[Rfam]
RNA sequence: AGCAGAGUAGAAUGCAAUGCGUAAAGUGCUUCUUGUACAGGGAGUUGACAAGAAGACGAAGAGGUAAAACUUGCGAUAUUGUAUUCGCAUCCCGCUGCU
Numbered sequence: 001a002g003c004a005g006a007g008u009a010g011a012a013u014g015c016a017a018u019g020c021g022u023a024a025a026g027u028g029c030u031u032c033u034u035g036u037a038c039a040g041g042g043a044g045u046u047g048a049c050a051a052g053a054a055g056a057c058g059a060a061g062a063g064g065u066a067a068a069a070c071u072u073g074c075g076a077u078a079u080u081g082u083a084u085u086c087g088c089a090u091c092c093c094g095c096u097g098c099u
Stems, first nucleotide, its partner, number of pairs: 001099005010086010020075003026057002029055008040092003044088001061072003
The record is a 99-nucleotide RNA sequence from Firmicutes bacterium CAG:536, which matches "THF (Tetrahydrofolate) riboswitch aptamer" in Rfam. NCBI's taxonomy places the organism under Bacteria, Bacillati, Bacillota. Tetrahydrofolate (THF) riboswitch was first reported for Ames et al. as an RNA motif in 5' untranslated (5'-UTR)regions of folate transport and biosynthesis genes in Firmicutes genomes. On this family, see Ames et al., Chem Biol 2010: "A eubacterial riboswitch class that senses the coenzyme tetrahydrofolate".